[Rfam]
RNA sequence: UGGCUGGCUAAGCAGUGUGGAUACUUCGUAAAGCAAAAUGGUAUUGCAAUUAACUGUCACUUAAUGUUUGUGGGUUCGAUCCCCACUGCGUUUCUUUCUACACGCGCGAUCCAGCUUUUUU
Numbered sequence: 001u002g003g004c005u006g007g008c009u010a011a012g013c014a015g016u017g018u019g020g021a022u023a024c025u026u027c028g029u030a031a032a033g034c035a036a037a038a039u040g041g042u043a044u045u046g047c048a049a050u051u052a053a054c055u056g057u058c059a060c061u062u063a064a065u066g067u068u069u070g071u072g073g074g075u076u077c078g079a080u081c082c083c084c085a086c087u088g089c090g091u092u093u094c095u096u097u098c099u100a101c102a103c104g105c106g107c108g109a110u111c112c113a114g115c116u117u118u119u120u121u
Base pairs, nucleotide, nucleotide: 002116003115004114005113006112007111012105013104017101018100019099020098026079027078028077